[Rfam]
Nucleotides: 347
Base pairs, nucleotide, nucleotide: 021336023334026332027331028330029329030328032327034325035324036323037322038321039320052302055299056298058296059295060294061293062292063291064290065289082159083158085156086155087154093148094147095146098144099143100142101141102140103139104138105136106135108132109131115126178219179218180217181216182215183214184213187209188203189202190201191200221282222281223280224279226277227276228275236267237266238265239264242261243260303319305317306316307315308314309313
Number, partner (000 for none) and nucleotide at each position: 001000u002000u003000u004000u005000a006000g007000a008000a009000a010000c011000a012000a013000a014000c015000a016000a017000u018000a019000u020000a021336c022000a023334u024000u025000u026332g027331a028330u029329g030328a031000u032327u033000a034325u035324a036323a037322a038321g039320a040000a041000a042000u043000u044000u045000u046000u047000a048000a049000c050000u051000u052302u053000g054000c055299a056298u057000u058296u059295a060294u061293g062292a063291c064290u065289g066000a067000u068000u069000u070000a071000u072000c073000a074000a075000u076000c077000u078000c079000a080000a081000a082159u083158a084000u085156g086155a087154c088000a089000u090000a091000g092000u093148g094147c095146u096000a097000a098144u099143u100142u101141u102140g103139a104138u105136u106135u107000a108132a109131g110000u111000a112000a113000a114000c115126u116000c117000c118000a119000a120000a121000u122000c123000g124000g125000u126115a127000a128000u129000c130000g131109c132108u133000g134000a135106a136105g137000u138104a139103u140102u141101a142100a143099a144098a145000c146095a147094g148093u149000u150000a151000g152000u153000g154087g155086u156085u157000u158083u159082a160000c161000a162000a163000a164000u165000u166000a167000u168000u169000c170000u171000g172000u173000c174000u175000c176000u177000a178219a179218u180217c181216a182215g183214u184213a185000c186000a187209u188203u189202a190201u191200a192000a193000a194000g195000a196000u197000u198000g199000c200191u201190a202189u203188a204000a205000a206000a207000a208000a209187g210000a211000a212000c213184u214183g215182u216181u217180g218179a219178u220000g221282a222281a223280a224279a225000u226277u227276g228275a229000g230000g231000a232000g233000a234000u235000a236267a237266u238265u239264a240000u241000a242261g243260c244000a245000g246000c247000a248000a249000a250000a251000u252000g253000u254000g255000c256000u257000a258000a259000a260243g261242c262000a263000u264239u265238a266237a267236u268000c269000u270000a271000a272000u273000g274000a275228u276227c277226a278000a279224u280223u281222u282221u283000a284000u285000a286000u287000u288000g289065c290064a291063g292062u293061u294060a295059u296058g297000u298056a299055u300000u301000g302052g303319u304000a305317c306316g307315u308314c309313a310000a311000c312000g313309u314308g315307a316306u317305g318000c319303a320039u321038c322037u323036u324035u325034a326000g327032a328030u329029u330028g331027u332026u333000u334023a335000g336021g337000a338000a339000u340000a341000a342000a343000u344000u345000a346000g347000g